[Rfam]
RNA sequence: UUAAUUUAAAUACGAAAUCACACACGUAUCGUCACGUUUAUCGGGGUGCUGAAAUUAAUCAUUUUGGUCGAUUAAGCGGGAUACGUGGAGGAAUAAC
Numbered sequence: 001u002u003a004a005u006u007u008a009a010a011u012a013c014g015a016a017a018u019c020a021c022a023c024a025c026g027u028a029u030c031g032u033c034a035c036g037u038u039u040a041u042c043g044g045g046g047u048g049c050u051g052a053a054a055u056u057a058a059u060c061a062u063u064u065u066g067g068u069c070g071a072u073u074a075a076g077c078g079g080g081a082u083a084c085g086u087g088g089a090g091g092a093a094u095a096a097c
Base pairs, nucleotide, nucleotide: 023087024086025085026084027083028082029081030080035078036077037076038075039074040072041071042070043069048068049067050066051065052064